[Rfam]
RNA: Coronavirus frameshifting stimulation element
Organism: Deltacoronavirus lonchurae
RNA sequence: GAGUAGUGGGUUCCAGUGAAGCCCGACUGGAACCCCAACAGCCAGGUACAAUCCCUGAUGCUGUUAAACGGGCUUUUC
Numbered sequence: 001g002a003g004u005a006g007u008g009g010g011u012u013c014c015a016g017u018g019a020a021g022c023c024c025g026a027c028u029g030g031a032a033c034c035c036c037a038a039c040a041g042c043c044a045g046g047u048a049c050a051a052u053c054c055c056u057g058a059u060g061c062u063g064u065u066a067a068a069c070g071g072g073c074u075u076u077u078c
Base pairs, nucleotide, nucleotide: 008035009034010033011032012031013030014029015028016027020074021073022072023071024070037064043057044056046055